[Rfam]
RNA sequence: AUUAUCCUUCAGGGCAGGGUGAGAAUCCCUACCGGCGGUAAAGCCCGCGAGCCUAUUAUGGGCAUGAAUCGGUGAAACUCCGAUGCCGACAGUAUAGUCUGGAUGAAAGAAGGUAAUG
Numbered sequence: 001a002u003u004a005u006c007c008u009u010c011a012g013g014g015c016a017g018g019g020u021g022a023g024a025a026u027c028c029c030u031a032c033c034g035g036c037g038g039u040a041a042a043g044c045c046c047g048c049g050a051g052c053c054u055a056u057u058a059u060g061g062g063c064a065u066g067a068a069u070c071g072g073u074g075a076a077a078c079u080c081c082g083a084u085g086c087c088g089a090c091a092g093u094a095u096a097g098u099c100u101g102g103a104u105g106a107a108a109g110a111a112g113g114u115a116a117u118g
Base pairs, nucleotide, nucleotide: 003116006113007112008111009110010109017029018028019027031098032097033088034087035048036047037046038045043086044085053062068084069083070082071081072080090101091100092099